[Rfam]
Source information
Guanidine-I riboswitch aptamer: a 118-nucleotide RNA sequence from Plantactinospora soyae. This family represents a conserved RNA structure found upstream of the ykkC and yxkD genes in Bacillus subtilis and related genes in other bacteria. The function of this family is unclear although it has been suggested that it may function to switch on efflux pumps and detoxification systems in response to harmful environmental molecules.

RNA sequence: CUGAGGCGCGCCUAGGGUUCCGCCGCCCCCGCAGGGGGGCGGGCCUGGUCCGAGAGGCGCAGGCGGGGCCGGCGGCGCUGUCGGCACCGUUCCACGGCGGGACAAAAGCCCGGGAGAC
Number, nucleotide and partner (000 for none) at each position: 001c000002u000003g000004a000005g000006g000007c000008g060009c059010g058011c057012c056013u000014a000015g051016g050017g000018u000019u000020c048021c047022g045023c042024c041025g040026c039027c038028c037029c000030c000031g000032c000033a000034g000035g000036g000037g028038g027039g026040c025041g024042g023043g000044c000045c022046u000047g021048g020049u000050c016051c015052g000053a000054g000055a000056g012057g011058c010059g009060c008061a000062g091063g090064c089065g088066g087067g000068g085069c084070c083071g082072g081073c080074g000075g000076c000077g000078c000079u000080g073081u072082c071083g070084g069085c068086a000087c066088c065089g064090u063091u062092c000093c113094a000095c116096g000097g000098c000099g111100g110101g109102a000103c000104a000105a000106a000107a000108g000109c101110c100111c099112g000113g093114g000115a000116g095117a000118c000